[Rfam]
RNA sequence: CUUCGCUGAUCGCUUCGGCGGAGAAAGGGCUUGGGAAACAACGACUUAACGCCUUGGUGCGUGACUCGUUUCCCGCUCCAGC
Numbered sequence: 001c002u003u004c005g006c007u008g009a010u011c012g013c014u015u016c017g018g019c020g021g022a023g024a025a026a027g028g029g030c031u032u033g034g035g036a037a038a039c040a041a042c043g044a045c046u047u048a049a050c051g052c053c054u055u056g057g058u059g060c061g062u063g064a065c066u067c068g069u070u071u072c073c074c075g076c077u078c079c080a081g082c
Base pairs, nucleotide, nucleotide: 001023002022003021004020005019006018007017008016009015029078032075033074034073035072036071037070038069039068043065045063050059051058052057
Proteobacterial sRNA sX8: an 82-nucleotide sequence from Azoarcus taiwanensis. A search with the family's covariance model found it, with a score of 86 bits. On this family, see Schmidtke et al., Nucleic Acids Res 2011: "Genome-wide transcriptome analysis of the plant pathogen Xanthomonas identifies sRNAs with putative virulence functions".